[Rfam]
Nucleotides: 099
Base pairs, nucleotide, nucleotide: 001099002098003097004096005095
Number, partner (000 for none) and nucleotide at each position: 001099g002098a003097u004096g005095c006000a007000a008000u009000g010000c011000a012000g013000u014000g015000u016000u017000g018000a019000u020000a021000u022000u023000g024000a025000g026000g027000a028000u029000u030000u031000u032000g033000g034000c035000a036000g037000u038000g039000g040000u041000g042000a043000c044000a045000u046000c047000a048000g049000u050000u051000g052000u053000c054000g055000u056000g057000a058000g059000c060000u061000u062000u063000c064000a065000a066000u067000c068000c069000a070000a071000a072000a073000a074000a075000a076000c077000g078000a079000c080000u081000u082000c083000u084000c085000u086000u087000u088000c089000c090000a091000c092000u093000g094000a095005g096004c097003a098002u099001u
This 99-nucleotide RNA from Leersia perrieri belongs to the Rfam family "Small nucleolar RNA Z152/R70/R12/". Rfam 15.1 lists 604 matches to the family in 220 species. The family's consensus secondary structure was predicted with PFOLD. Gene Ontology terms of the family: nucleolus and RNA processing. It is annotated as a C/D-box small nucleolar RNA. Lineage of the source: Eukaryota > Streptophyta > Liliopsida > Poales > Leersia.